[Rfam]
RNA sequence: GAAAUGUGUAUACCUGAGUAUAAUGGUGAUGUAAUCCAAGCAUAUACAGUAUAUAUAUAUACUGUAUAUGCUUGGAUUACAUCACCAUUAUACUCAGGUAUACACAUU
Numbered sequence: 001g002a003a004a005u006g007u008g009u010a011u012a013c014c015u016g017a018g019u020a021u022a023a024u025g026g027u028g029a030u031g032u033a034a035u036c037c038a039a040g041c042a043u044a045u046a047c048a049g050u051a052u053a054u055a056u057a058u059a060u061a062c063u064g065u066a067u068a069u070g071c072u073u074g075g076a077u078u079a080c081a082u083c084a085c086c087a088u089u090a091u092a093c094u095c096a097g098g099u100a101u102a103c104a105c106a107u108u
Stems, first nucleotide, its partner, number of pairs: 006105006013098016030081003
Record summary: A member of the RNA family "MIR397 microRNA precursor family" from Acipenser ruthenus, 108 nucleotides long. The base pairs follow the family's consensus structure, which was predicted with WAR. Its family is annotated with miRNA-mediated post-transcriptional gene silencing and RISC complex in the Gene Ontology.